Small nucleolar RNA Z159/U59: a 91-nucleotide RNA from Cicer arietinum.

RNA sequence: GUCUCCGAUGAUGAACAAUAAAAUAUAACUUUCGUUCUUCUGAGUUCUUUUUGUGCGGAAGAAAAUUAUUGGAGACCUGAACUGAGGAGAC
Number, nucleotide and partner (000 for none) at each position: 001g000002u000003c089004u088005c087006c086007g000008a000009u000010g000011a000012u000013g000014a000015a000016c000017a000018a000019u000020a000021a000022a000023a000024u000025a000026u000027a000028a000029c000030u000031u000032u000033c000034g000035u000036u000037c000038u000039u000040c000041u000042g000043a000044g000045u000046u000047c000048u000049u000050u000051u000052u000053g000054u000055g000056c000057g000058g000059a000060a000061g000062a000063a000064a000065a000066u000067u000068a000069u000070u000071g000072g000073a000074g000075a000076c000077c000078u000079g000080a000081a000082c000083u000084g000085a000086g006087g005088a004089g003090a000091c000
A reference for the family is Chen et al. (2003), "The high diversity of snoRNAs in plants: identification and comparative study of 120 snoRNA genes from Oryza sativa", Nucleic Acids Res. The source organism's lineage runs through Eukaryota, eudicotyledons, rosids, Fabaceae and Cicer. Rfam links the family to the GO terms RNA processing and nucleolus. It is annotated as a C/D-box small nucleolar RNA.